[Rfam]
RNA sequence: GCAUGGCUGGAUACUGUGCUCUUUUUAUUAGUAAUUACACAGCCAGACACCGUGCAAAAGUACUGUCUGCCCUUUAAAAUGAUCAUGAUGUAGUCUAAGUUUUUCAUGGCAUAUCAUUAUUAAAGGUGAAUACAAAU
Number, nucleotide and partner (000 for none) at each position: 001g055002c054003a053004u052005g051006g050007c000008u000009g000010g000011a000012u000013a000014c042015u041016g040017u039018g038019c000020u000021c000022u000023u000024u000025u000026u000027a000028u000029u000030a000031g000032u000033a000034a000035u000036u000037a000038c018039a017040c016041a015042g014043c000044c000045a000046g000047a000048c000049a000050c006051c005052g004053u003054g002055c001056a000057a000058a000059a000060g000061u000062a000063c000064u000065g000066u000067c000068u130069g000070c128071c126072c125073u124074u123075u122076a121077a120078a000079a000080u000081g000082a000083u119084c000085a117086u116087g115088a114089u113090g112091u111092a000093g110094u109095c108096u000097a000098a000099g000100u000101u000102u000103u000104u000105c000106a000107u000108g095109g094110c093111a091112u090113a089114u088115c087116a086117u085118u000119a083120u077121u076122a075123a074124a073125g072126g071127u000128g070129a000130a068131u000132a000133c000134a000135a000136a000137u000